[Rfam]
RNA: Small nucleolar RNA U109
RNA sequence: UUGCAUGCGGAAAUGUCUGCUCCUCAUUCCUUUGGAAGCAGGAAUACGUCCAUAACAUGCUACGUUAAAAAAGGAGUUCUCAGGGCUGCCAAUCUUACAGUAGAGGUUGAGUAGUAACACAUUUCUCCUACAUUA
Numbered sequence: 001u002u003g004c005a006u007g008c009g010g011a012a013a014u015g016u017c018u019g020c021u022c023c024u025c026a027u028u029c030c031u032u033u034g035g036a037a038g039c040a041g042g043a044a045u046a047c048g049u050c051c052a053u054a055a056c057a058u059g060c061u062a063c064g065u066u067a068a069a070a071a072a073g074g075a076g077u078u079c080u081c082a083g084g085g086c087u088g089c090c091a092a093u094c095u096u097a098c099a100g101u102a103g104a105g106g107u108u109g110a111g112u113a114g115u116a117a118c119a120c121a122u123u124u125c126u127c128c129u130a131c132a133u134u135a
Base pairs, nucleotide, nucleotide: 003060004059005058006057007056016042017041018040019039020038021037023035073128074127075126076125085115086114089111090109091108092107093106094105095104096103